RNA sequence: AUGGACCCCCCCCUGCGCUUUGGCUCCUCUGCGCUGUCCGCACCCGCCUGACGAUUGCUUGCUACGGUCUGUUCGCC
Numbered sequence: 001a002u003g004g005a006c007c008c009c010c011c012c013c014u015g016c017g018c019u020u021u022g023g024c025u026c027c028u029c030u031g032c033g034c035u036g037u038c039c040g041c042a043c044c045c046g047c048c049u050g051a052c053g054a055u056u057g058c059u060u061g062c063u064a065c066g067g068u069c070u071g072u073u074c075g076c077c
Stems, first nucleotide, its partner, number of pairs: 002017002005014001021036004026031001048075001050073004
The record is a 77-nucleotide sequence from Xanthomonas campestris, which matches "Xanthomonas sRNA sX9" in Rfam. It scores 45 bits against the family's covariance model. The base pairs follow the family's consensus structure, which was predicted with RNAalifold. Taxonomically the source falls in Xanthomonas campestris pv. campestris (Bacteria, Pseudomonadota, Gammaproteobacteria, Lysobacteraceae).